[Rfam]
RNA sequence: GCUUUUCCCCCCACCCCUGCGGGCGUAGGCUACAGAGAAGCCUGCAGGGCUCUGGGUGUAAGAGC
Numbered sequence: 001g002c003u004u005u006u007c008c009c010c011c012c013a014c015c016c017c018u019g020c021g022g023g024c025g026u027a028g029g030c031u032a033c034a035g036a037g038a039a040g041c042c043u044g045c046a047g048g049g050c051u052c053u054g055g056g057u058g059u060a061a062g063a064g065c
Stems, first nucleotide, its partner, number of pairs: 001065004008056003013051001015049001018046002022042003025033002
Dot-bracket structure: ((((...(((..(.(..((..(((((.....))......)))..))..).)..))).....))))
RNA: MAT2A 3'UTR stem loop A